[Rfam]
RNA sequence: UAAGCACCUCGUUAGGUGAGGCGGCUACACGAACAUAGGCCACUGACCCCGAACGUCGAGAGACGCCCCGGGUCAGGACAGCUCUUCCCGGCUUAAGGGUUGAGCCCAGGUGGCUUCCGGCUUACCGGACAGGUCGUGUGGUGCGAAAGCCUGACAGAAGGGGUCGGUU
Dot-bracket structure: .....((((((([.(((...((..((((((((......(((((.(((((....((((....))))....)))))......((((..(((......])))..))))....))))).(((........)))....)))))))).))....)))..))....))))).....
Shown here is a 169-nucleotide RNA sequence from Mycobacterium tuberculosis, a member of the family "M-box riboswitch aptamer (ykoK leader)".
Rfam 15.1 lists 1,095 matches to the family in 932 species.
The base pairs follow the family's consensus structure.
For this family Rfam cites "New RNA motifs suggest an expanded scope for riboswitches in bacterial genetic control" (Barrick et al., Proc Natl Acad Sci U S A, 2004).